[Rfam]
RNA sequence: GCCACAGGAUGACAUCAUAGAUAUGCAUUAGCGCUCUGCGCAGAGAUGACCCACUAUCUAUCACCCAAGUCUGAUGGCU
Numbered sequence: 001g002c003c004a005c006a007g008g009a010u011g012a013c014a015u016c017a018u019a020g021a022u023a024u025g026c027a028u029u030a031g032c033g034c035u036c037u038g039c040g041c042a043g044a045g046a047u048g049a050c051c052c053a054c055u056a057u058c059u060a061u062c063a064c065c066c067a068a069g070u071c072u073g074a075u076g077g078c079u
Stems, first nucleotide, its partner, number of pairs: 001078004031041004

The family of this 79-nucleotide sequence from Oncorhynchus tshawytscha is "Small nucleolar RNA SNORD83". The source organism's lineage runs through Eukaryota, Opisthokonta, Metazoa, Actinopterygii and Oncorhynchus. The base pairs follow the family's consensus structure, which was predicted with PFOLD. The family's RNA type in Rfam is C/D-box small nucleolar RNA.